[Rfam]
RNA sequence: CGCUAUUUAUCCCCGAAAACGCCACGUCCUGUGGCAUCGGUGACAUGACCAACAUCCUGUUGG
Numbered sequence: 001c002g003c004u005a006u007u008u009a010u011c012c013c014c015g016a017a018a019a020c021g022c023c024a025c026g027u028c029c030u031g032u033g034g035c036a037u038c039g040g041u042g043a044c045a046u047g048a049c050c051a052a053c054a055u056c057c058u059g060u061u062g063g
Stems, first nucleotide, its partner, number of pairs: 008045001010043002013040002021035005049063005

The record is a 63-nucleotide RNA from Ureibacillus manganicus, which matches "Bacillaceae-1 RNA" in Rfam. The family's RNA type in Rfam is small RNA. The match comes from Rfam's covariance-model search (36 bits). Pairs were carried over by alignment from the consensus structure, which is taken from published work.